[Rfam]
RNA: tRNA
Organism: Frankia nepalensis
RNA sequence: GGUCGUCUAGCUCAUCCGGUCAGAGCACCCGUCUGAUACGCGGGAGGCACGAGGUUCAAGUCCUCGGGCGACCA
Dot-bracket structure: (((((((..((((.........)))).(((((.......))))).....(((((.......)))))))))))).